Shown here is a 154-nucleotide RNA from Camellia sinensis, a member of the family "Small nucleolar RNA snoR2/U65". The family has 11 seed sequences and 908 matches in Rfam 15.1. Rfam classes the family as an H/ACA-box small nucleolar RNA. The match comes from Rfam's covariance-model search (134 bits). Clan: SNORA65 clan. The base pairs follow the family's consensus structure, which was predicted with WAR.
RNA sequence: GGUCCGAUGCCACGUUGCCGGUAGCCACCAAAAGCAUUGACCGGCAAUGCUAUGAUUGGACCAAAAUCAAUAUUUUUGUUUCGCAUUUCGAUAGGAAUCUGUGGACUGAUUAAAUACUCUUUGUCCAUGGAGCCGGUUUUGUGCGAUUACAUUU
Numbered sequence: 001g002g003u004c005c006g007a008u009g010c011c012a013c014g015u016u017g018c019c020g021g022u023a024g025c026c027a028c029c030a031a032a033a034g035c036a037u038u039g040a041c042c043g044g045c046a047a048u049g050c051u052a053u054g055a056u057u058g059g060a061c062c063a064a065a066a067u068c069a070a071u072a073u074u075u076u077u078g079u080u081u082c083g084c085a086u087u088u089c090g091a092u093a094g095g096a097a098u099c100u101g102u103g104g105a106c107u108g109a110u111u112a113a114a115u116a117c118u119c120u121u122u123g124u125c126c127a128u129g130g131a132g133c134c135g136g137u138u139u140u141g142u143g144c145g146a147u148u149a150c151a152u153u154u
Base pairs, nucleotide, nucleotide: 002061003060004059005058006057007056008055009053013049014048015047016046017045018044020042021041022040024035025034081146082145083144084143085142094134095133099130100129101128103126104125105124106123
Taxonomically the source falls in Camellia (Eukaryota, Embryophyta, Tracheophyta, Euphyllophyta).